[Rfam]
RNA: Small nucleolar RNA SNORD115
RNA sequence: GGGUCAGUGAUGAGAUCUUUUCCUUGUCUCUAGAGAGGUGCUGUCUUAAAAGUCUUGUGCAAUAGAGUUACGAUGAGAACC
Numbered sequence: 001g002g003g004u005c006a007g008u009g010a011u012g013a014g015a016u017c018u019u020u021u022c023c024u025u026g027u028c029u030c031u032a033g034a035g036a037g038g039u040g041c042u043g044u045c046u047u048a049a050a051a052g053u054c055u056u057g058u059g060c061a062a063u064a065g066a067g068u069u070a071c072g073a074u075g076a077g078a079a080c081c
Base pairs, nucleotide, nucleotide: 001081002080004078005075006074008072009071